[Rfam]
RNA: MIR7486 microRNA precursor family
Organism: Gossypium mustelinum
RNA sequence: CACGUCAGCGCGCUUUGCUUACGUGGCAACAAAUCACGUACACGUAAGCGCGAUUUGUGUCCAUGUCAGCAAAGCACUCUGACGUGG
Numbered sequence: 001c002a003c004g005u006c007a008g009c010g011c012g013c014u015u016u017g018c019u020u021a022c023g024u025g026g027c028a029a030c031a032a033a034u035c036a037c038g039u040a041c042a043c044g045u046a047a048g049c050g051c052g053a054u055u056u057g058u059g060u061c062c063a064u065g066u067c068a069g070c071a072a073a074g075c076a077c078u079c080u081g082a083c084g085u086g087g
Base pairs, nucleotide, nucleotide: 001086002085003084004083005082006081007080008079010077012075013074014073015072016071017070018069019068021066023064024063025062026061029058030057031056032055033054034053035052037050038049